[Rfam]
RNA sequence: UUGGGUUAAAUCUAUGUGGGUCAUACAUUUUGAAAAGGGAACCCACGUAAAGUGAUGGGACAUGCAUUGGUUUCAUCCAA
Numbered sequence: 001u002u003g004g005g006u007u008a009a010a011u012c013u014a015u016g017u018g019g020g021u022c023a024u025a026c027a028u029u030u031u032g033a034a035a036a037g038g039g040a041a042c043c044c045a046c047g048u049a050a051a052g053u054g055a056u057g058g059g060a061c062a063u064g065c066a067u068u069g070g071u072u073u074c075a076u077c078c079a080a
Base pairs, nucleotide, nucleotide: 001080002079003078004077005076006075008073009072010071011070012069014067015066016065017064018063024057025056026054027053028052029051030050031049032048
MIR5269 microRNA precursor family: an 80-nucleotide sequence from Medicago truncatula. NCBI's taxonomy places the organism under Eukaryota, Streptophytina, Tracheophyta, fabids, Medicago. The family has 2 seed sequences and 389 matches in Rfam 15.1.